[Rfam]
RNA: RNase MRP
Organism: Cynara cardunculus
Nucleotides: 268
Stems, first nucleotide, its partner, number of pairs: 002268010014225006021055006029048007059254003063251004078089004091104005123188001130185006138178004150172004227238003
Number, partner (000 for none) and nucleotide at each position: 001000u002268g003267a004266c005265c006264a007263a008262c009261g010260g011259a012000u013000g014225a015224u016223g017222u018221g019220a020000u021055u022054g023053g024052g025051c026050u027000a028000u029048g030047g031046a032045u033044c034043u035042g036000u037000g038000u039000a040000a041000a042035u043034g044033g045032a046031u047030u048029c049000g050026g051025g052024u053023u054022c055021a056000g057000g058000a059254a060253a061252g062000u063251c064250c065249c066248c067000g068000g069000g070000c071000c072000g073000a074000u075000u076000g077000c078089u079088g080087c081086a082000g083000a084000g085000a086081u087080g088079c089078g090000g091104g092103c093102u094101c095100g096000g097000a098000a099000a100095c101094g102093a103092g104091u105000a106000a107000a108000a109000c110000u111000u112000u113000c114000a115000g116000a117000g118000c119000a120000a121000a122000u123188g124000a125000a126000c127000c128000c129000g130185g131184u132183u133182g134181g135180a136000u137000c138178c139177u140176u141175g142000g143000g144000u145000c146000c147000a148000u149000c150172g151171g152170g153169c154000u155000g156000a157000g158000a159000c160000u161000a162000g163000u164000g165000u166000g167000g168000a169153g170152c171151u172150u173000a174000a175141u176140g177139g178138g179000u180135u181134c182133u183132a184131a185130c186000g187000c188123u189000u190000g191000a192000a193000g194000u195000g196000a197000g198000u199000u200000u201000g202000g203000c204000c205000g206000a207000u208000a209000u210000a211000c212000a213000g214000a215000g216000u217000c218000a219000u220019u221018c222017a223016c224015a225014u226000g227238g228237u229236c230000g231000a232000g233000u234000g235000a236229g237228a238227c239000u240000a241000a242000c243000u244000g245000a246000a247000c248066g249065g250064g251063g252061c253060u254059u255000a256000u257000g258000a259011u260010c261009c262008g263007u264006u265005g266004g267003u268002c